[Rfam]
RNA sequence: AUGCCGUAUAAGUGAAUGCUUUGCCACAGUCUUCGAAAAUGUCUGAAAUGGAAGCUGGGCUAAGAUUCGCUUAGGCCGGCGU
Numbered sequence: 001a002u003g004c005c006g007u008a009u010a011a012g013u014g015a016a017u018g019c020u021u022u023g024c025c026a027c028a029g030u031c032u033u034c035g036a037a038a039a040u041g042u043c044u045g046a047a048a049u050g051g052a053a054g055c056u057g058g059g060c061u062a063a064g065a066u067u068c069g070c071u072u073a074g075g076c077c078g079g080c081g082u
Stems, first nucleotide, its partner, number of pairs: 004079003009073009019064003023060003027057003
Dot-bracket structure: ...(((..(((((((((.(((.(((.(((.........................)))))).))))))))))))...)))...
RNA: mir-86 microRNA precursor family
Organism: Caenorhabditis angaria